[Rfam]
RNA sequence: CCCGACAUGCCUCUCAACGAUGCACAAAUUGUCGGGC
Numbered sequence: 001c002c003c004g005a006c007a008u009g010c011c012u013c014u015c016a017a018c019g020a021u022g023c024a025c026a027a028a029u030u031g032u033c034g035g036g037c
Base pairs, nucleotide, nucleotide: 001036002035003034004033005032006031008024009023010022